[Rfam]
RNA sequence: CUCUAAUAUUAUUCCAGAUUAUAUAUUUUAAGGAAUAUAUACAGAGAAGUAUUAGAUAUUAAAGAGGUUUAUUCCUUCCUAUUUUAGGUAAAAAUGAAGCAAUAAAAUAUGUAUUAGUAAAUAUUAGAUAUUGAAAAUACGUAUAUUAU
Number, nucleotide and partner (000 for none) at each position: 001c000002u000003c055004u054005a053006a052007u051008a050009u049010u000011a000012u000013u047014c046015c000016a000017g000018a000019u000020u041021a040022u039023a038024u037025a036026u035027u034028u033029u000030a000031a000032g000033g028034a027035a026036u025037a024038u023039a022040u021041a020042c000043a000044g000045a000046g014047a013048a000049g009050u008051a007052u006053u005054a004055g003056a000057u000058a000059u000060u000061a000062a000063a000064g000065a000066g000067g000068u000069u000070u000071a000072u000073u000074c000075c000076u000077u000078c088079c087080u086081a085082u000083u000084u000085u081086a080087g079088g078089u000090a000091a000092a000093a000094a000095u000096g000097a000098a000099g000100c000101a000102a149103u148104a147105a146106a000107a144108u143109a142110u141111g140112u139113a138114u137115u000116a000117g000118u000119a000120a132121a131122u130123a129124u128125u000126a000127g000128a124129u123130a122131u121132u120133g000134a000135a000136a000137a114138u113139a112140c111141g110142u109143a108144u107145a000146u105147u104148a103149u102
Shown here is a 149-nucleotide RNA, a member of the family "RT-14 RNA". Rfam classes the family as a small RNA. The sequence is in the family's curated seed alignment.